Shown here is a 28-nucleotide RNA sequence from Flagellimonas eckloniae, a member of the family "L19-Flavobacteria ribosomal protein leader". Rfam classes the family as a cis-regulatory leader.
[Rfam]
RNA sequence: UAACCUCUGACGAAACUCGUGUAAGUUA
Numbered sequence: 001u002a003a004c005c006u007c008u009g010a011c012g013a014a015a016c017u018c019g020u021g022u023a024a025g026u027u028a
Stems, first nucleotide, its partner, number of pairs: 001028004008023001010020004